Shown here is a 95-nucleotide RNA from Lepisosteus oculatus, a member of the family "Small nucleolar RNA SNORD70".
RNA sequence: GACUCUGCUGUCGAUGAUGCAUUCUGUGUUGCCUGAGUGAAAAACAAAUGAGGUCAAUUUUCAGUUUUCGUCACUACCACUGAGACAGCAGUGCA
Number, nucleotide and partner (000 for none) at each position: 001g000002a000003c093004u000005c091006u090007g089008c088009u087010g086011u085012c084013g000014a000015u000016g000017a000018u000019g000020c000021a000022u000023u000024c000025u000026g000027u000028g000029u000030u000031g000032c000033c000034u000035g000036a000037g000038u000039g000040a000041a000042a000043a000044a000045c000046a000047a000048a000049u000050g000051a000052g000053g000054u000055c000056a000057a000058u000059u000060u000061u000062c000063a000064g000065u000066u000067u000068u000069c000070g000071u000072c000073a000074c000075u000076a000077c000078c000079a000080c000081u000082g000083a000084g012085a011086c010087a009088g008089c007090a006091g005092u000093g003094c000095a000
On this family, see Huttenhofer et al., EMBO J 2001: "RNomics: an experimental approach that identifies 201 candidates for novel, small, non-messenger RNAs in mouse". It is annotated as a C/D-box small nucleolar RNA. Rfam 15.1 lists 1,085 matches to the family in 579 species.